[Rfam]
The family of this 206-nucleotide RNA from Sus scrofa is "Small nucleolar RNA ZL1".
Rfam 15.1 lists 300 matches to the family in 287 species.
Host gene TRRAP. Predicted target U2@U47.
NCBI's taxonomy places the organism under Eukaryota, Eutheria, Boreoeutheria, Artiodactyla, Sus.
It is annotated as a C/D-box small nucleolar RNA.
A search with the family's covariance model found it, with a score of 153 bits.
RNA sequence: GGAGAAGCAACGUGAUGAGCAUUGCUGGCUGGAGCUCCAAAGGGGCACCUGUGUGUGUGUGUGUGUGUGUGUGUGUGUCUGUACCCUUGUCUGUGCAUGCACACGUGUGUCUGGGAGUAUGUGUGAGCGUGGCUGGUUGUAGGGACCUAGUUAUGUGCCUCCUUUUGGACGAUGAUAGUCAAAAACUGAUAAGAUCUGAUUGCUUC
Number, nucleotide and partner (000 for none) at each position: 001g000002g000003a000004g206005a205006a204007g203008c202009a201010a200011c000012g000013u000014g196015a195016u194017g000018a000019g000020c000021a000022u000023u000024g000025c000026u181027g180028g179029c178030u177031g176032g000033a000034g000035c000036u115037c114038c113039a112040a000041a110042g000043g108044g000045g106046c105047a000048c000049c000050u000051g102052u101053g100054u099055g098056u097057g096058u095059g000060u000061g000062u000063g091064u000065g000066u000067g086068u000069g084070u083071g082072u081073g080074u000075g000076u000077g000078u000079c000080u073081g072082u071083a070084c069085c000086c067087u000088u000089g000090u000091c063092u000093g000094u000095g058096c057097a056098u055099g054100c053101a052102c051103a000104c000105g046106u045107g000108u043109g000110u041111c000112u039113g038114g037115g036116a000117g130118u129119a000120u127121g000122u000123g000124u000125g000126a000127g120128c000129g118130u117131g000132g000133c150134u149135g148136g147137u000138u145139g000140u000141a000142g000143g000144g000145a138146c000147c136148u135149a134150g133151u000152u174153a173154u172155g000156u000157g170158c000159c168160u167161c000162c000163u000164u000165u000166u000167g160168g159169a000170c157171g000172a154173u153174g152175a000176u031177a030178g029179u028180c027181a026182a000183a000184a000185a000186c000187u000188g000189a000190u000191a000192a000193g000194a016195u015196c014197u000198g000199a000200u010201u009202g008203c007204u006205u005206c004